[Rfam]
RNA: U7 small nuclear RNA
Organism: Nomascus leucogenys
RNA sequence: AAGUGCUACAGCUCUUUGGAUUUGUCUAGCAGCUUUCUGGGUUUUGCUGGAAAGCCCUU
Numbered sequence: 001a002a003g004u005g006c007u008a009c010a011g012c013u014c015u016u017u018g019g020a021u022u023u024g025u026c027u028a029g030c031a032g033c034u035u036u037c038u039g040g041g042u043u044u045u046g047c048u049g050g051a052a053a054g055c056c057c058u059u
Base pairs, nucleotide, nucleotide: 032055033054034053035052036051037050038049039048040047